Shown here is an 84-nucleotide RNA sequence from Musa balbisiana, a member of the family "Plastid-rpl20 3UTR RNA". On this family, see Richter et al., Plant Commun 2023: "Retrograde signaling in plants: A critical review focusing on the GUN pathway and beyond". From the family's description: Plastid rpl20 is a non-coding RNA (ncRNA) recognised in plastids. It was found in the three prime untranslated region (3UTR) of rpl20 gene, it presence in the 3UTR region sugest a role in transcript maduration. Lineage of the source: Eukaryota > Embryophyta > Petrosaviidae > commelinids > Musa.
[Rfam]
RNA sequence: ACAGAAUUCCCCGGAGCAUGACCUCCGGGAAAAUAGAAUAAAUAAAUUAAUAUAGUAAUAGUGAAUGAACUAAUAUGUUUCAAU
Numbered sequence: 001a002c003a004g005a006a007u008u009c010c011c012c013g014g015a016g017c018a019u020g021a022c023c024u025c026c027g028g029g030a031a032a033a034u035a036g037a038a039u040a041a042a043u044a045a046a047u048u049a050a051u052a053u054a055g056u057a058a059u060a061g062u063g064a065a066u067g068a069a070c071u072a073a074u075a076u077g078u079u080u081c082a083a084u
Base pairs, nucleotide, nucleotide: 007031008030010029011028012027013026014025015024016023067080068079069078070077